[Rfam]
RNA: mir-1788 microRNA precursor family
RNA sequence: UUGCAUUCCGGGCUUGUUUUAAGUUGCCUGCGAUAGGCUAAAAGACACAGGCAGCUAAAGCAAGUCCGGGACGCUG
Numbered sequence: 001u002u003g004c005a006u007u008c009c010g011g012g013c014u015u016g017u018u019u020u021a022a023g024u025u026g027c028c029u030g031c032g033a034u035a036g037g038c039u040a041a042a043a044g045a046c047a048c049a050g051g052c053a054g055c056u057a058a059a060g061c062a063a064g065u066c067c068g069g070g071a072c073g074c075u076g
Base pairs, nucleotide, nucleotide: 003074004073006071007070008069010067011066012065013064014063015062016061017060018059019058020057022056023055024054025053026052027051028050029049030048032046